[Rfam]
RNA sequence: GUAAAAGCUUUCUAGGGUUCCGCGUGUUUGAACGGACUGGUCCAAGAGGAAGCGCAUAGAUGUUAUCUAUGUACACGGAGGGAGAAAAGCCCGGGAGGU
Number, nucleotide and partner (000 for none) at each position: 001g000002u000003a000004a000005a000006a000007g053008c052009u051010u050011u049012c048013u000014a000015g043016g042017g000018u000019u000020c040021c039022g037023c034024g033025u032026g000027u000028u000029u000030g000031a000032a025033c024034g023035g000036a000037c022038u000039g021040g020041u000042c016043c015044a000045a000046g000047a000048g012049g011050a010051a009052g008053c007054g072055c071056a070057u069058a068059g067060a066061u065062g000063u000064u000065a061066u060067c059068u058069a057070u056071g055072u054073a000074c094075a000076c097077g000078g000079a000080g092081g091082g090083a000084g000085a000086a000087a000088a000089g000090c082091c081092c080093g000094g074095g000096a000097g076098g000099u000

This 99-nucleotide sequence from Halalkalibacter wakoensis belongs to the Rfam family "Guanidine-I riboswitch aptamer". Pairs were carried over by alignment from the consensus structure. The family has 100 seed sequences and 1,509 matches in Rfam 15.1. Rfam describes the family as follows. This family represents a conserved RNA structure found upstream of the ykkC and yxkD genes in Bacillus subtilis and related genes in other bacteria. It scores 86 bits against the family's covariance model. The organism belongs to Halalkalibacter wakoensis, within Bacteria.